[Rfam]
RNA sequence: CGAAUAUGAAAAUAAAGAGAGCUAUCCGUCGACAGUAGGGAUAUGAUUCACUGUCAUGGAAUUGCUCUCUUUAUGUACAAUUCG
Dot-bracket structure: .............(((((.(((..((((..(((.((.............)).))).))))...))).)))))............